[Rfam]
RNA sequence: GUUGCAAUGUUGAGGCCAUAGCAGAAGUGCUCACAGCAUGGCCUGUCAGAUUCCAACGAAUCUGCAAAUUCUGCU
Number, nucleotide and partner (000 for none) at each position: 001g000002u000003u000004g000005c000006a000007a000008u000009g000010u000011u000012g000013a000014g043015g042016c041017c040018a000019u000020a075021g074022c073023a072024g071025a070026a069027g039028u038029g037030c000031u000032c000033a000034c000035a000036g000037c029038a028039u027040g017041g016042c015043c014044u000045g000046u000047c064048a063049g062050a061051u060052u059053c058054c000055a000056a000057c000058g053059a052060a051061u050062c049063u048064g047065c000066a000067a000068a000069u026070u025071c024072u023073g022074c021075u020
A member of the RNA family "Mammalian CPEB3 ribozyme" from Alligator sinensis, 75 nucleotides long.
Taxonomically the source falls in Alligator (Eukaryota, Bilateria, Chordata, Euteleostomi).
The match comes from Rfam's covariance-model search (56 bits).